The family of this 380-nucleotide RNA from Poriferisphaera corsica is "Bacterial RNase P class A". Taxonomically the source falls in Poriferisphaera (Bacteria, Pseudomonadati, Planctomycetota, Phycisphaerae). The match comes from Rfam's covariance-model search (299 bits). By type it is a ribozyme.
RNA sequence: GAUGCCUGCCGGGCGGCCGCGUGCAUGUUCGCAUGUACGAGGAAAGUCCGAGCUCGAUAGGACAUCGGUGGUGGGUAACACCCACCCGCAUGGUUGGCGACGAUCAUGCGAGGGAUAGCGCCACAGAAAUAAUACCGCCUUGCUUUGCAAGGUAAGGGUGAAAUGGUGCGGUAAGAGCGCACCGCUGAUCUGGUGACAGAUUAGGCAUGGCAAGCCCCACCGCGUGCAAGACCAAGCAGUCUCCAGUUGCUCCGCAACGCGCUCUGUCCGGGCGUAAUGGGGACGGGUAGGUUGCUUGAGCCUGCUGGCAACAGCAGGCCUAGAGAAAUGGUCGCCACCCUCAACGGGUACAGAACUCGGCUUACAAGCAGGCAUCACAA
Numbered sequence: 001g002a003u004g005c006c007u008g009c010c011g012g013g014c015g016g017c018c019g020c021g022u023g024c025a026u027g028u029u030c031g032c033a034u035g036u037a038c039g040a041g042g043a044a045a046g047u048c049c050g051a052g053c054u055c056g057a058u059a060g061g062a063c064a065u066c067g068g069u070g071g072u073g074g075g076u077a078a079c080a081c082c083c084a085c086c087c088g089c090a091u092g093g094u095u096g097g098c099g100a101c102g103a104u105c106a107u108g109c110g111a112g113g114g115a116u117a118g119c120g121c122c123a124c125a126g127a128a129a130u131a132a133u134a135c136c137g138c139c140u141u142g143c144u145u146u147g148c149a150a151g152g153u154a155a156g157g158g159u160g161a162a163a164u165g166g167u168g169c170g171g172u173a174a175g176a177g178c179g180c181a182c183c184g185c186u187g188a189u190c191u192g193g194u195g196a197c198a199g200a201u202u203a204g205g206c207a208u209g210g211c212a213a214g215c216c217c218c219a220c221c222g223c224g225u226g227c228a229a230g231a232c233c234a235a236g237c238a239g240u241c242u243c244c245a246g247u248u249g250c251u252c253c254g255c256a257a258c259g260c261g262c263u264c265u266g267u268c269c270g271g272g273c274g275u276a277a278u279g280g281g282g283a284c285g286g287g288u289a290g291g292u293u294g295c296u297u298g299a300g301c302c303u304g305c306u307g308g309c310a311a312c313a314g315c316a317g318g319c320c321u322a323g324a325g326a327a328a329u330g331g332u333c334g335c336c337a338c339c340c341u342c343a344a345c346g347g348g349u350a351c352a353g354a355a356c357u358c359g360g361c362u363u364a365c366a367a368g369c370a371g372g373c374a375u376c377a378c379a380a
Base pairs, nucleotide, nucleotide: 001376002375003374004373005372006371007370008369009368011365012336013335014334015333016332017331018330020039021038022037023036024035025034026033027032044363045362046361048360049359050358051357052356053226055224056223060269061268062267063266066222067221068220069219070218071085072084073083074082075081086112087110088109089108090107091106092105093104094103095102096101113217114216118215119214120211121210122209135157136156137153138152139151140150141149142148143147165183166182167181168180169179170178184206185204186203187202188201189200190199191198192197230293231292232291233290239284240283241282242281243280244279260274261273262272263271264270300319301318302317303316304315305314306313307312